RNA sequence: UCCUCCGGUGCCUACUGAGCUGAUAUCAGUCUGAUUUUACACACUGGCUCAGUUCAGCAGGAACAGGAG
Numbered sequence: 001u002c003c004u005c006c007g008g009u010g011c012c013u014a015c016u017g018a019g020c021u022g023a024u025a026u027c028a029g030u031c032u033g034a035u036u037u038u039a040c041a042c043a044c045u046g047g048c049u050c051a052g053u054u055c056a057g058c059a060g061g062a063a064c065a066g067g068a069g
Stems, first nucleotide, its partner, number of pairs: 003069004008064002011061003015057009026047005
This 69-nucleotide sequence from Thryothorus ludovicianus belongs to the Rfam family "mir-24 microRNA precursor family". A search with the family's covariance model found it, with a score of 89 bits. Rfam's curators write: This family represents the microRNA (miRNA) mir-24 family. miRNAs are transcribed as ~70nt precursors (modelled here) and subsequently processed by the Dicer enzyme to give a ~22nt product. In this case the mature sequence comes from the 3' arm of the precursor. A reference for the family is Ambros (2001), "microRNAs: tiny regulators with great potential", Cell. Gene Ontology terms of the family: miRNA-mediated post-transcriptional gene silencing and RISC complex.